RNA: speF leader
Organism: Martelella mediterranea
RNA sequence: UCCCGGAUUUCCAUCCCCGGGGUACUAAAGAGGCACAUACCUUCAUUGCCGGAAGUGCGGCGGGUCAAUCCCCCAAUCCAAGGCAGACAAAGCCGGAUCAUCCUUGCUUGCAGGGCUGAUUCAAACUUGAGCGUUCGCCGCAACCGUUCCCCGGGGUC
Number, nucleotide and partner (000 for none) at each position: 001u022002c021003c020004c019005g018006g017007a000008u000009u000010u000011c000012c000013a000014u000015c000016c000017c006018c005019g004020g003021g002022g001023u000024a000025c000026u000027a000028a000029a000030g000031a000032g050033g049034c048035a047036c000037a000038u000039a000040c000041c000042u000043u000044c000045a000046u000047u035048g034049c033050c032051g000052g000053a000054a000055g000056u000057g000058c000059g000060g000061c000062g000063g000064g000065u000066c000067a000068a000069u000070c000071c000072c000073c000074c000075a000076a000077u000078c000079c000080a000081a000082g094083g093084c000085a000086g000087a000088c000089a000090a000091a000092g000093c083094c082095g000096g000097a000098u000099c000100a000101u000102c156103c155104u154105u153106g152107c000108u000109u000110g000111c000112a000113g000114g000115g000116c000117u000118g000119a000120u000121u000122c000123a000124a000125a000126c000127u000128u000129g000130a000131g000132c000133g000134u000135u000136c000137g000138c000139c000140g000141c000142a000143a000144c000145c000146g000147u000148u000149c000150c000151c000152c106153g105154g104155g103156g102157u000158c000